RNA sequence: AUGCAUCUGACAGACCUGGAGCAAACACCGUUGCUUCUCUGGUUCUCUCUGAGAUGCAACAGGAACGGGUUCCUUGCGCUUUCUGCCUGUCUGACCUGGUGGCAGCUCGGAUUGAAUAAAGGAACACAAAU
Numbered sequence: 001a002u003g004c005a006u007c008u009g010a011c012a013g014a015c016c017u018g019g020a021g022c023a024a025a026c027a028c029c030g031u032u033g034c035u036u037c038u039c040u041g042g043u044u045c046u047c048u049c050u051g052a053g054a055u056g057c058a059a060c061a062g063g064a065a066c067g068g069g070u071u072c073c074u075u076g077c078g079c080u081u082u083c084u085g086c087c088u089g090u091c092u093g094a095c096c097u098g099g100u101g102g103c104a105g106c107u108c109g110g111a112u113u114g115a116a117u118a119a120a121g122g123a124a125c126a127c128a129a130a131u
Base pairs, nucleotide, nucleotide: 002058003057004056005055006054007053008052009047013044014043015042016041019036020035021034022033023032024031071123072122073121074120075119079114082111083110084109085108087105088104089103090102091101
A member of the RNA family "Small nucleolar RNA SNORA31" from Daphoenositta chrysoptera, 131 nucleotides long. Rfam 15.1 lists 2,094 matches to the family in 626 species. Rfam's curators write: ACA31 (SNORA31) belongs to the H/ACA class of snoRNAs which are thought to guide the sites of modification of uridines to pseudouridines. ACA31 is predicted to guide the pseudouridylation of U3713 in 28S rRNA and U218 in 18S rRNA. This family includes the mouse homologue snoMBI-161. It is annotated as an H/ACA-box small nucleolar RNA.